[Rfam]
RNA sequence: GGGAUAAGUGAGUAGCUCUCCUAGAGCUAUUUUAGGGGAGAGGAAAGUCCAUGCUUGCAUAGACUGAGAUGUCUAUAGUGUUUGUGUAAGUACAUAAAAAAUAAAACUUAACGGCUAGAGAAAUCUAGUUGAUGGCGGAAAAUAAUUCUAAGUAGCCUAAAGCUAUAUGAAUUAGUUUCUUUAAAGUGCCACAGAGACGAGCUUUACAGAAAUGUAAAAGUGUGAAACGCGGUAAACCCCUCAAGCAAGAAACCUAAAUAAUGGUAAGGGAAUUUAAGCUUAGGAAUUCAACUAAGCUUAGGAAUUUAGUUGAAAAACUAAAUUAGAUUAAUUACUCACAUUUUCUCGAAAAAUACAGAACAUGGCUUAUUAAU
Numbered sequence: 001g002g003g004a005u006a007a008g009u010g011a012g013u014a015g016c017u018c019u020c021c022u023a024g025a026g027c028u029a030u031u032u033u034a035g036g037g038g039a040g041a042g043g044a045a046a047g048u049c050c051a052u053g054c055u056u057g058c059a060u061a062g063a064c065u066g067a068g069a070u071g072u073c074u075a076u077a078g079u080g081u082u083u084g085u086g087u088a089a090g091u092a093c094a095u096a097a098a099a100a101a102u103a104a105a106a107c108u109u110a111a112c113g114g115c116u117a118g119a120g121a122a123a124u125c126u127a128g129u130u131g132a133u134g135g136c137g138g139a140a141a142a143u144a145a146u147u148c149u150a151a152g153u154a155g156c157c158u159a160a161a162g163c164u165a166u167a168u169g170a171a172u173u174a175g176u177u178u179c180u181u182u183a184a185a186g187u188g189c190c191a192c193a194g195a196g197a198c199g200a201g202c203u204u205u206a207c208a209g210a211a212a213u214g215u216a217a218a219a220g221u222g223u224g225a226a227a228c229g230c231g232g233u234a235a236a237c238c239c240c241u242c243a244a245g246c247a248a249g250a251a252a253c254c255u256a257a258a259u260a261a262u263g264g265u266a267a268g269g270g271a272a273u274u275u276a277a278g279c280u281u282a283g284g285a286a287u288u289c290a291a292c293u294a295a296g297c298u299u300a301g302g303a304a305u306u307u308a309g310u311u312g313a314a315a316a317a318c319u320a321a322a323u324u325a326g327a328u329u330a331a332u333u334a335c336u337c338a339c340a341u342u343u344u345c346u347c348g349a350a351a352a353a354u355a356c357a358g359a360a361c362a363u364g365g366c367u368u369a370u371u372a373a374u
Base pairs, nucleotide, nucleotide: 004374005373007370008339009338010337011336012335013334014333016040017039018038019037020036021035022034023033045368046367047366049365050364051363052362053361054249055248056247057246058245059076060075061074062073063072064071082244083243084242086240087110088109089108090107091106111133112131113130114129115128116127117126118125119124134239135238137180138179139178140177145172146171147170148169152166153165154164155163156162186237187236188233189232190231201221202220203219204217205216206215207214208213253269254268255267273302274301275300276299277298278297279296303324304323305322306321307320308319309318310317311316344350